[Rfam]
RNA sequence: CGCGUAAAAAGGCAAGCCGAGAUCGAAGACCGGUACGCAAAGCUACCAGUCUAAAGAGCAAUCGCUCCAUGGCGAAGGGGCUGCAUGC
Numbered sequence: 001c002g003c004g005u006a007a008a009a010a011g012g013c014a015a016g017c018c019g020a021g022a023u024c025g026a027a028g029a030c031c032g033g034u035a036c037g038c039a040a041a042g043c044u045a046c047c048a049g050u051c052u053a054a055a056g057a058g059c060a061a062u063c064g065c066u067c068c069a070u071g072g073c074g075a076a077g078g079g080g081c082u083g084c085a086u087g088c
Stems, first nucleotide, its partner, number of pairs: 012038002017033003023029002041082004046078002049073003056067004